Rfam assigns this 325-nucleotide sequence from Laodelphax striatellus to the family "Arthropod 7SK RNA". The source organism's lineage runs through Eukaryota, Paraneoptera, Hemiptera, Delphacoidea and Laodelphax. By type it is a non-coding RNA gene. Pairs were carried over by alignment from the consensus structure, which is taken from published work. On this family, see Gruber et al., Mol Biol Evol 2008: "Arthropod 7SK RNA".
[Rfam]
RNA sequence: GGAAGUGUGUGUCAGGUGAUGGCACAACUGAACAUUGAUCGCUUCAUCUCAUUUAGUAGGCAGAUCUGCUCAGUUAGGUGUUGUCACAGGAUUUCUUUAUAGCCUGCAUGCGCUCCUGAUGCAUUGUCUCCUCGCACUCUGACGUCAUCUCACUCCGGUGGAUGAUGGAGGGGUGGGAGGAGGCAAGUCGCUCAGUCGAGUACAUAAGGGCGAAUAGAAUCACUGCGAUUUCCUAAUACUAGGGCAACAGACAGAUUCCGGUAUCAAAUUACUUUAGUCACUUCCAUGAAACGGCACUGCCAGGUGCAGUAUGCCAUUUUUUUUC
Numbered sequence: 001g002g003a004a005g006u007g008u009g010u011g012u013c014a015g016g017u018g019a020u021g022g023c024a025c026a027a028c029u030g031a032a033c034a035u036u037g038a039u040c041g042c043u044u045c046a047u048c049u050c051a052u053u054u055a056g057u058a059g060g061c062a063g064a065u066c067u068g069c070u071c072a073g074u075u076a077g078g079u080g081u082u083g084u085c086a087c088a089g090g091a092u093u094u095c096u097u098u099a100u101a102g103c104c105u106g107c108a109u110g111c112g113c114u115c116c117u118g119a120u121g122c123a124u125u126g127u128c129u130c131c132u133c134g135c136a137c138u139c140u141g142a143c144g145u146c147a148u149c150u151c152a153c154u155c156c157g158g159u160g161g162a163u164g165a166u167g168g169a170g171g172g173g174u175g176g177g178a179g180g181a182g183g184c185a186a187g188u189c190g191c192u193c194a195g196u197c198g199a200g201u202a203c204a205u206a207a208g209g210g211c212g213a214a215u216a217g218a219a220u221c222a223c224u225g226c227g228a229u230u231u232c233c234u235a236a237u238a239c240u241a242g243g244g245c246a247a248c249a250g251a252c253a254g255a256u257u258c259c260g261g262u263a264u265c266a267a268a269u270u271a272c273u274u275u276a277g278u279c280a281c282u283u284c285c286a287u288g289a290a291a292c293g294g295c296a297c298u299g300c301c302a303g304g305u306g307c308a309g310u311a312u313g314c315c316a317u318u319u320u321u322u323u324u325c
Stems, first nucleotide, its partner, number of pairs: 001285007016087005028073003033068002037066004041061004047055001293315003296310005